The family of this 58-nucleotide RNA sequence from Streptantibioticus cattleyicolor is "msiK RNA". The organism belongs to Streptantibioticus cattleyicolor, within Bacteria.
[Rfam]
RNA sequence: GGGAAGACUCCUUUACUCGGAUCGUCCGGCACGUUCCUGCCGGUGAACGGAGCACUUC
Numbered sequence: 001g002g003g004a005a006g007a008c009u010c011c012u013u014u015a016c017u018c019g020g021a022u023c024g025u026c027c028g029g030c031a032c033g034u035u036c037c038u039g040c041c042g043g044u045g046a047a048c049g050g051a052g053c054a055c056u057u058c
Base pairs, nucleotide, nucleotide: 009050010049012047013046014045015044026043027042028041029040030039031038

Pairs were carried over by alignment from the consensus structure, which is taken from published work.